Rfam assigns this 86-nucleotide RNA to the family "Group II catalytic intron D1-D4-1". It is one of the family's seed sequences. About the family: Group II introns are found in rRNA, tRNA and mRNA of organelles in fungi, plants and protists, and also in mRNA in bacteria.
[Rfam]
RNA sequence: CAACAUAUACAGUGAUGUAUAACUGAACUAUCAGAAGUCAGCAGAGGUCAUAGUAAGUCCGCUAAUCGCGAUAGCGGAUGAAUGAC
Numbered sequence: 001c002a003a004c005a006u007a008u009a010c011a012g013u014g015a016u017g018u019a020u021a022a023c024u025g026a027a028c029u030a031u032c033a034g035a036a037g038u039c040a041g042c043a044g045a046g047g048u049c050a051u052a053g054u055a056a057g058u059c060c061g062c063u064a065a066u067c068g069c070g071a072u073a074g075c076g077g078a079u080g081a082a083u084g085a086c
Stems, first nucleotide, its partner, number of pairs: 001025002006021006038045002047086003057079008